This 125-nucleotide sequence from Chara braunii belongs to the Rfam family "U11 spliceosomal RNA". Rfam classes the family as a spliceosomal small nuclear RNA. The base pairs follow the family's consensus structure, which is taken from published work. NCBI's taxonomy places the organism under Eukaryota, Streptophyta, Streptophytina, Charales, Chara. It scores 59 bits against the family's covariance model.
RNA sequence: AAAAAGGGCAAGUUGGCUAUAUAUGCCAUGCAUGGUUUAGGCCGUGCACUGUAUGGACAUCAAGACAUAUGGCUGGCAGAAUUUUUGAACCCUCCAAUAGGGUUUUUUUUAAAAAGGGAUCCCCC
Numbered sequence: 001a002a003a004a005a006g007g008g009c010a011a012g013u014u015g016g017c018u019a020u021a022u023a024u025g026c027c028a029u030g031c032a033u034g035g036u037u038u039a040g041g042c043c044g045u046g047c048a049c050u051g052u053a054u055g056g057a058c059a060u061c062a063a064g065a066c067a068u069a070u071g072g073c074u075g076g077c078a079g080a081a082u083u084u085u086u087g088a089a090c091c092c093u094c095c096a097a098u099a100g101g102g103u104u105u106u107u108u109u110u111a112a113a114a115a116g117g118g119a120u121c122c123c124c125c
Base pairs, nucleotide, nucleotide: 008077009076011074012073014028015027016026017025029048030047031046032045033044034043035042036041049072050071051070052069053068054067055066100123101122102121104119106116107115108114109113